[Rfam]
RNA sequence: UGAUGUUCCUCACCCUCCCCUGAAGAUCCUAGGUGGGUAAGGAAACAGAGAGGGAUC
Numbered sequence: 001u002g003a004u005g006u007u008c009c010u011c012a013c014c015c016u017c018c019c020c021u022g023a024a025g026a027u028c029c030u031a032g033g034u035g036g037g038u039a040a041g042g043a044a045a046c047a048g049a050g051a052g053g054g055a056u057c
Stems, first nucleotide, its partner, number of pairs: 006044005013037003017033002025057006